[Rfam]
RNA sequence: GCGCGUGGACGACCUCGCAGCGGAUUCCAUCGAUGGGGACGGCCCCG
Numbered sequence: 001g002c003g004c005g006u007g008g009a010c011g012a013c014c015u016c017g018c019a020g021c022g023g024a025u026u027c028c029a030u031c032g033a034u035g036g037g038g039a040c041g042g043c044c045c046c047g
Stems, first nucleotide, its partner, number of pairs: 003018003007014002034047005
Notes
Rfam assigns this 47-nucleotide sequence from Herbaspirillum sp. meg3 to the family "Guanidine-II riboswitch aptamer (mini-ykkC)". The family's consensus secondary structure is taken from published work. The organism belongs to Herbaspirillum, within Bacteria.